Source information: Rfam assigns this 51-nucleotide sequence from Nocardioides jejuensis to the family "L17-Actino-Proteobacteria ribosomal protein leader". It is annotated as a cis-regulatory leader. The family's consensus secondary structure is taken from published work. A search with the family's covariance model found it, with a score of 40 bits. The literature on the family includes a 2020 paper in BMC Microbiol by Eckert and Weinberg, "Discovery of 20 novel ribosomal leader candidates in bacteria and archaea". Taxonomically the source falls in Nocardioides (Bacteria, Bacillati, Propionibacteriales, Nocardioidaceae).

RNA sequence: GCCGGCGACUGACGCCGGCGUCUACCCGGGUACCUGACACGGCCCGAGAGA
Numbered sequence: 001g002c003c004g005g006c007g008a009c010u011g012a013c014g015c016c017g018g019c020g021u022c023u024a025c026c027c028g029g030g031u032a033c034c035u036g037a038c039a040c041g042g043c044c045c046g047a048g049a050g051a
Base pairs, nucleotide, nucleotide: 001019002018003017004016005015006014007013021051022050023049025048027046028045029044030043031042